Rfam assigns this 69-nucleotide RNA sequence from Escherichia albertii to the family "Salmonella enterica sRNA STnc40". Rfam classes the family as a small RNA. The organism belongs to Escherichia albertii, within Bacteria.

[Rfam]
RNA sequence: GCAGUGCCAUGGUCGCCUGCAAUAAAAACUAAUCAAUAAAACAAAGGCGCAGGAAUCUGCGCCUUUUUU
Numbered sequence: 001g002c003a004g005u006g007c008c009a010u011g012g013u014c015g016c017c018u019g020c021a022a023u024a025a026a027a028a029c030u031a032a033u034c035a036a037u038a039a040a041a042c043a044a045a046g047g048c049g050c051a052g053g054a055a056u057c058u059g060c061g062c063c064u065u066u067u068u069u
Stems, first nucleotide, its partner, number of pairs: 002019003006013002043066010